[Rfam]
The family of this 139-nucleotide sequence from Panagrolaimus davidi is "U4 spliceosomal RNA".
The family's RNA type in Rfam is spliceosomal small nuclear RNA.
U4 small nuclear RNA (U4 snRNA) is a component of the major U2-dependent spliceosome.
The family's consensus secondary structure is taken from published work.
Its family is annotated with spliceosomal tri-snRNP complex assembly and U4 snRNP in the Gene Ontology.
Clan: U4 clan.
For this family Rfam cites "The uRNA database" (Zwieb, Nucleic Acids Res, 1997).
NCBI's taxonomy places the organism under Eukaryota, Ecdysozoa, Tylenchina, Panagrolaimidae, Panagrolaimus.
Nucleotides: 139
Base pairs, nucleotide, nucleotide: 020051021050022049023048024047026046027045028044034041035040084116085115086114087112088111089110090109091108092106093105094104129139130138131137132136
Number, partner (000 for none) and nucleotide at each position: 001000a002000g003000c004000u005000u006000u007000g008000c009000g010000c011000a012000g013000a014000g015000g016000c017000g018000a019000u020051a021050a022049c023048g024047u025000g026046a027045u028044c029000a030000a031000u032000g033000a034041g035040g036000g037000a038000a039000a040035c041034c042000g043000a044028g045027a046026u047024g048023c049022g050021u051020u052000u053000a054000u055000u056000g057000c058000u059000g060000g061000u062000u063000g064000a065000a066000a067000a068000c069000u070000u071000u072000c073000a074000c075000c076000a077000a078000u079000u080000a081000c082000c083000c084116g085115c086114g087112a088111u089110a090109a091108u092106c093105u094104c095000u096000g097000a098000a099000a100000u101000a102000u103000u104094g105093a106092g107000u108091a109090u110089u111088a112087u113000a114086c115085g116084c117000a118000a119000u120000u121000u122000u123000u124000g125000g126000a127000c128000g129139c130138u131137c132136u133000u134000a135000a136132g137131g138130a139129g